RAGATH-28 RNA: an 81-nucleotide sequence.

RNA sequence: CCGGGGUUGAUACGUCCUCCGGAGCGUGACCGGCGGGCAUAGAGAGAUGAAAACCGGGCGGAAACGGCCGGAUGGCGAAGC
Numbered sequence: 001c002c003g004g005g006g007u008u009g010a011u012a013c014g015u016c017c018u019c020c021g022g023a024g025c026g027u028g029a030c031c032g033g034c035g036g037g038c039a040u041a042g043a044g045a046g047a048u049g050a051a052a053a054c055c056g057g058g059c060g061g062a063a064a065c066g067g068c069c070g071g072a073u074g075g076c077g078a079a080g081c
Base pairs, nucleotide, nucleotide: 001022002021003020004019005018006017054071055070056069057068059066060065

The sequence is in the family's curated seed alignment. It is annotated as a small RNA.